[Rfam]
RNA sequence: UAAAAUAAAAGUUAUAUCGCUUAUAUAAGCUCAUAAUUUAGGUUGAGCGUUUCUACCCACUACCGUAAAUAGUUGAUUUAUAAGUAACCAUUAAGUUCUA
Numbered sequence: 001u002a003a004a005a006u007a008a009a010a011g012u013u014a015u016a017u018c019g020c021u022u023a024u025a026u027a028a029g030c031u032c033a034u035a036a037u038u039u040a041g042g043u044u045g046a047g048c049g050u051u052u053c054u055a056c057c058c059a060c061u062a063c064c065g066u067a068a069a070u071a072g073u074u075g076a077u078u079u080a081u082a083a084g085u086a087a088c089c090a091u092u093a094a095g096u097u098c099u100a
Base pairs, nucleotide, nucleotide: 019085020084021083022082023081024080025079029048030047031046032045033044057075059073060072061071062070
RNA: Purine riboswitch aptamer
Organism: Sarcina ventriculi